This 89-nucleotide sequence from Jatropha curcas belongs to the Rfam family "Small nucleolar RNA Z102/R77". Taxonomically the source falls in Jatropha (Eukaryota, fabids, Malpighiales, Euphorbiaceae). Clan: SNORD44 clan. On this family, see Chen et al., Nucleic Acids Res 2003: "The high diversity of snoRNAs in plants: identification and comparative study of 120 snoRNA genes from Oryza sativa".

[Rfam]
RNA sequence: GAAUGAGAUGAUGACUUUGUUUGUUUCCCUAUUGGUUUGAUUGCCGUAAUGAUGGCAAAUUCCAAUGUAUUAGCUCUAUCUGAUCAUUC
Numbered sequence: 001g002a003a004u005g006a007g008a009u010g011a012u013g014a015c016u017u018u019g020u021u022u023g024u025u026u027c028c029c030u031a032u033u034g035g036u037u038u039g040a041u042u043g044c045c046g047u048a049a050u051g052a053u054g055g056c057a058a059a060u061u062c063c064a065a066u067g068u069a070u071u072a073g074c075u076c077u078a079u080c081u082g083a084u085c086a087u088u089c
Stems, first nucleotide, its partner, number of pairs: 002088004039061001042057004